[Rfam]
RNA sequence: CGAGCCGGCCGGGCGGUCGCGUCGGGGGUUUCGCCCCCGCCGAGGAAGGUCCGGGCUCCACAGGGCAGGGUGGUCGGUAACGCCGACCCGGGGUGACCCGCGGGACAGUGCCACAGAAAGCAGACCGCCACCGGCCUCGGCCGGCGGUAAGGGUGAAACGGUGAGGUAAGAGCUCACCAGCGCCCGAGGCGACUCGGGCGGCUAGGUAAACCCCACCUGGAGCAAGGUCAAGAAGGGGAGCCGACGGUUCCCCGCGCAGGCGCCUGAGGGCGGCCCGCCCGAGCCUGCGGGUAGACCGCUGGAGGCCGCCGGCAACGGCGGCCCGAGAUGGAUGACCGUCGCCCGCCCCCGGCGGGCACAGAACCCGGCCUACAGGCCGACUCGUCCG
Numbered sequence: 001c002g003a004g005c006c007g008g009c010c011g012g013g014c015g016g017u018c019g020c021g022u023c024g025g026g027g028g029u030u031u032c033g034c035c036c037c038c039g040c041c042g043a044g045g046a047a048g049g050u051c052c053g054g055g056c057u058c059c060a061c062a063g064g065g066c067a068g069g070g071u072g073g074u075c076g077g078u079a080a081c082g083c084c085g086a087c088c089c090g091g092g093g094u095g096a097c098c099c100g101c102g103g104g105a106c107a108g109u110g111c112c113a114c115a116g117a118a119a120g121c122a123g124a125c126c127g128c129c130a131c132c133g134g135c136c137u138c139g140g141c142c143g144g145c146g147g148u149a150a151g152g153g154u155g156a157a158a159c160g161g162u163g164a165g166g167u168a169a170g171a172g173c174u175c176a177c178c179a180g181c182g183c184c185c186g187a188g189g190c191g192a193c194u195c196g197g198g199c200g201g202c203u204a205g206g207u208a209a210a211c212c213c214c215a216c217c218u219g220g221a222g223c224a225a226g227g228u229c230a231a232g233a234a235g236g237g238g239a240g241c242c243g244a245c246g247g248u249u250c251c252c253c254g255c256g257c258a259g260g261c262g263c264c265u266g267a268g269g270g271c272g273g274c275c276c277g278c279c280c281g282a283g284c285c286u287g288c289g290g291g292u293a294g295a296c297c298g299c300u301g302g303a304g305g306c307c308g309c310c311g312g313c314a315a316c317g318g319c320g321g322c323c324c325g326a327g328a329u330g331g332a333u334g335a336c337c338g339u340c341g342c343c344c345g346c347c348c349c350c351g352g353c354g355g356g357c358a359c360a361g362a363a364c365c366c367g368g369c370c371u372a373c374a375g376g377c378c379g380a381c382u383c384g385u386c387c388g
Base pairs, nucleotide, nucleotide: 001384002383003382004381006379007378008377009376010375011373012340013339014338015337016336017335018334020042021041023039024038025037026036027035028034047371048370049369051368052367053366054365055364056222057221058220059219063276064275065274066273068218069217070216071215072214073087074086075085076084077083088102089100090099091098092097103213104212108211109210110207111206112205125152126151127148128147129146131144132143133142134141135140160178161177162176163175164174165173180202181200182199183198184197185196186195187194188193226297227296228295229294236288238286240284241283268280269279270278271277304323305322306321307320308319309318310317311316
This 388-nucleotide RNA from Actinomadura craniellae belongs to the Rfam family "Bacterial RNase P class A". NCBI's taxonomy places the organism under Bacteria, Bacillati, Actinomycetota, Thermomonosporaceae, Actinomadura. The family's consensus secondary structure is taken from published work.